Rfam assigns this 115-nucleotide sequence from Ignavigranum ruoffiae to the family "FMN riboswitch aptamer (RFN element)". About the family: The RFN element is a highly conserved domain that is found frequently in the 5'-untranslated regions of prokaryotic mRNAs that encode for flavin mononucleotide (FMN) biosynthesis and transport proteins. The match comes from Rfam's covariance-model search (119 bits). Lineage of the source: Bacteria > Bacillota > Lactobacillales > Aerococcaceae > Ignavigranum.
[Rfam]
Nucleotides: 115
Stems, first nucleotide, its partner, number of pairs: 004112007017029003031095002033085002035049004044083002052061003065081005087098003
Number, partner (000 for none) and nucleotide at each position: 001000u002000a003000a004112u005111a006110u007109c008108u009107u010106c011000a012000g013000g014000g015000c016000a017029g018028g019027g020000u021000g022000a023000a024000a025000u026000u027019c028018c029017u030000g031095a032094c033085c034084g035049g036048u037047g038046g039000u040000u041000a042000u043000a044083g045082c046038c047037c048036a049035c050000g051000a052061g053060c054059c055000g056000u057000a058000a059054g060053g061052c062000a063000g064000a065081u066080u067079c068078g069077g070000u071000g072000u073000g074000a075000g076000u077069c078068c079067g080066a081065a082045g083044c084034c085033g086000a087098c088097a089096g090000u091000a092000a093000a094032g095031u096089c097088u098087g099000g100000a101000u102000g103000a104000a105000a106010g107009a108008a109007g110006a111005u112004a113000g114000a115000u